About this RNA
The family of this 73-nucleotide RNA from Mycoplasma sp. CAG:611 is "tRNA". Pairs were carried over by alignment from the consensus structure, which is taken from published work.
RNA sequence: GCGAUAUUGGUGAAGUGGUUAACACGCUUGUCUGUGGAACAAGUAUGCAUGAGUUCGAUCCUCAUAUAUCGCC
Numbered sequence: 001g002c003g004a005u006a007u008u009g010g011u012g013a014a015g016u017g018g019u020u021a022a023c024a025c026g027c028u029u030g031u032c033u034g035u036g037g038a039a040c041a042a043g044u045a046u047g048c049a050u051g052a053g054u055u056c057g058a059u060c061c062u063c064a065u066a067u068a069u070c071g072c073c
Stems, first nucleotide, its partner, number of pairs: 001072007010025003027043005049065005
By type it is a transfer RNA. Its family is annotated with triplet codon-amino acid adaptor activity in the Gene Ontology.